This 75-nucleotide RNA from Platysternon megacephalum belongs to the Rfam family "Mammalian CPEB3 ribozyme".
[Rfam]
RNA sequence: UCAGUGCCAUCGGGGACCAUAACAGGAGUGUUCAUGUUGCAGGCCCUGUCAGAUUCUCUGAAUGCAAACCCUGCU
Numbered sequence: 001u002c003a004g005u006g007c008c009a010u011c012g013g014g015g016a017c018c019a020u021a022a023c024a025g026g027a028g029u030g031u032u033c034a035u036g037u038u039g040c041a042g043g044c045c046c047u048g049u050c051a052g053a054u055u056c057u058c059u060g061a062a063u064g065c066a067a068a069c070c071c072u073g074c075u
Stems, first nucleotide, its partner, number of pairs: 013046003017042001021075001023073004028040003050064002054062003
Rfam links the family to the GO term RNA nuclease activity. The mammalian CPEB3 ribozyme is a self cleaving RNA located in the second intron of the CPEB3 gene which belongs to a family of genes regulating messenger RNA polyadenylation.